[Rfam]
RNA: Nuclear RNase P
Organism: Pseudoloma neurophilia
RNA sequence: UUCGCAAAGUUUUCGUUCAGAGGCCUUUAGGUCUUUAGGAAGGUCUGAGAAUCACAACAGUCGAAAUGACAUAAACGAGAGUUUAGUAACUGGAUUAUCAGAAAUUCACGAUGACAGCUCUGUCAUUGUUUGAAAUAUGCCAGUGUGAUUGUUGUGAUAGUCCGAUACGAAAAGUGACAAUUGGUCUUGUUAUAACUCAAUUCAGACUACUCUUGCGAA
Numbered sequence: 001u002u003c004g005c006a007a008a009g010u011u012u013u014c015g016u017u018c019a020g021a022g023g024c025c026u027u028u029a030g031g032u033c034u035u036u037a038g039g040a041a042g043g044u045c046u047g048a049g050a051a052u053c054a055c056a057a058c059a060g061u062c063g064a065a066a067u068g069a070c071a072u073a074a075a076c077g078a079g080a081g082u083u084u085a086g087u088a089a090c091u092g093g094a095u096u097a098u099c100a101g102a103a104a105u106u107c108a109c110g111a112u113g114a115c116a117g118c119u120c121u122g123u124c125a126u127u128g129u130u131u132g133a134a135a136u137a138u139g140c141c142a143g144u145g146u147g148a149u150u151g152u153u154g155u156g157a158u159a160g161u162c163c164g165a166u167a168c169g170a171a172a173a174g175u176g177a178c179a180a181u182u183g184g185u186c187u188u189g190u191u192a193u194a195a196c197u198c199a200a201u202u203c204a205g206a207c208u209a210c211u212c213u214u215g216c217g218a219a
Stems, first nucleotide, its partner, number of pairs: 001219007010173007019036007045205005053147004060070003072085005090143004096137001111127001174193007